[Rfam]
Small nucleolar RNA SNORA77: a 124-nucleotide RNA sequence from Sciurus vulgaris. By type it is an H/ACA-box small nucleolar RNA. The organism belongs to Sciurus, within Eukaryota. The family has 19 seed sequences and 843 matches in Rfam 15.1. ACA63 (SNORA77) is a member of the H/ACA class of snoRNAs that guide the sites of modification of uridines to pseudouridines. This snoRNA was identified by computational screening and its expression in mouse experimentally verified by Northern blot and primer extension analysis. ACA63 is proposed to guide the pseudouridylation of 18S rRNA U814. Pairs were carried over by alignment from the consensus structure, which was predicted with RNAalifold. The literature on the family includes a 2006 paper in RNA by Schattner et al., "A computational screen for mammalian pseudouridylation guide H/ACA RNAs".
RNA sequence: UCAGACUUACUCAACACCCAGCUAUUCACCAGGCGGGUGAUUUUGCUCACUGCCAGAGAAACAUUCAGGGUGCUGUGGCUGCCUGGAUCUGUCAGGGACAAUGCAGCUGCCAGGGGACAGAGGG
Numbered sequence: 001u002c003a004g005a006c007u008u009a010c011u012c013a014a015c016a017c018c019c020a021g022c023u024a025u026u027c028a029c030c031a032g033g034c035g036g037g038u039g040a041u042u043u044u045g046c047u048c049a050c051u052g053c054c055a056g057a058g059a060a061a062c063a064u065u066c067a068g069g070g071u072g073c074u075g076u077g078g079c080u081g082c083c084u085g086g087a088u089c090u091g092u093c094a095g096g097g098a099c100a101a102u103g104c105a106g107c108u109g110c111c112a113g114g115g116g117a118c119a120g121a122g123g124g
Stems, first nucleotide, its partner, number of pairs: 002052003015039005022032002065115002069111003072107006080100002083097002